The record is a 367-nucleotide RNA sequence from Parvularcula marina, which matches "Alphaproteobacteria transfer-messenger RNA" in Rfam. Rfam's curators write: Bacterial tmRNA, also known as 10Sa RNA or SsrA, is named for its dual tRNA and mRNA-like properties. It is annotated as a non-coding RNA gene. Pairs were carried over by alignment from the consensus structure, which is taken from published work. Its family is annotated with RNA catabolic process in the Gene Ontology. NCBI's taxonomy places the organism under Bacteria, Pseudomonadota, Alphaproteobacteria, Parvularculaceae, Parvularcula.

RNA sequence: GCUCUUCAAACCUUCACCCUUGGACGCUAUAUGUGUCCGUGAUGCUUCGGUAUCUAUGGCGAUAAAUGGCGCUCGUAAUAAGCGGCCCGGACCCGGGGGCGGUACCCGGCGGCUCCACCAGAGGCCUCACGACGAUAAGUGGUGUGAGGAUUGUGGCGGGGCCGAAAUAGUAUCGACGGACGUGUAAAGGUUCUGCUUUCGCUCGGAUGGUCUCCGUUAUUGGGCCACUUAGAAUAGUUGCAAAUGACAACUCUUCGGAAGGUUUCGCUCUCGCUGCGUAACGCAGUGCGAGAAAACCGCAUUUAAGUCCCAGACCCAUCCCGGUCUGGGCGGGGUCCCGGCGAACCUGGCAACAGAAUCGCCGACU
Number, nucleotide and partner (000 for none) at each position: 001g000002c000003u000004c000005u000006u000007c000008a000009a000010a000011c000012c000013u000014u000015c000016a000017c000018c000019c000020u000021u000022g000023g000024a000025c000026g000027c000028u000029a000030u000031a000032u000033g000034u000035g000036u000037c000038c000039g000040u000041g054042a053043u052044g051045c050046u000047u000048c000049g000050g045051u044052a043053u042054c041055u000056a000057u000058g203059g202060c201061g200062a199063u000064a000065a000066a000067u000068g196069g000070c000071g193072c000073u000074c190075g000076u000077a000078a000079u000080a000081a000082g000083c182084g181085g000086c000087c179088c178089g177090g000091a000092c000093c109094c108095g107096g106097g105098g000099g000100c000101g000102g000103u000104a000105c097106c096107c095108g094109g093110c164111g163112g162113c161114u160115c159116c158117a000118c000119c000120a000121g000122a000123g000124g000125c000126c000127u000128c000129a000130c000131g000132a000133c000134g000135a000136u000137a000138a000139g000140u000141g000142g000143u000144g000145u000146g000147a000148g000149g000150a000151u000152u000153g000154u000155g000156g000157c000158g116159g115160g114161g113162c112163c111164g110165a000166a000167a000168u000169a000170g000171u000172a000173u000174c000175g000176a000177c089178g088179g087180a000181c084182g083183u000184g000185u000186a000187a000188a000189g000190g074191u000192u000193c071194u000195g000196c068197u000198u000199u062200c061201g060202c059203u058204c216205g215206g214207a213208u000209g000210g225211u223212c222213u207214c206215c205216g204217u000218u000219a000220u000221u000222g212223g211224g000225c210226c000227a000228c000229u000230u000231a000232g000233a000234a000235u000236a000237g000238u000239u000240g000241c000242a000243a000244a000245u000246g000247a000248c000249a000250a000251c000252u000253c000254u000255u000256c000257g000258g000259a000260a000261g000262g000263u000264u000265u000266c000267g000268c000269u000270c000271u000272c000273g000274c000275u000276g000277c000278g000279u000280a000281a000282c000283g000284c000285a000286g000287u000288g000289c000290g000291a000292g000293a000294a000295a000296a000297c000298c000299g000300c000301a000302u000303u000304u000305a000306a000307g000308u000309c000310c000311c000312a000313g000314a000315c000316c000317c000318a000319u000320c000321c000322c000323g000324g000325u000326c000327u000328g000329g000330g000331c000332g000333g348334g347335g346336u345337c000338c000339c364340g363341g362342c361343g360344a359345a336346c335347c334348u333349g000350g000351c000352a000353a000354c000355a000356g000357a000358a000359u344360c343361g342362c341363c340364g339365a000366c000367u000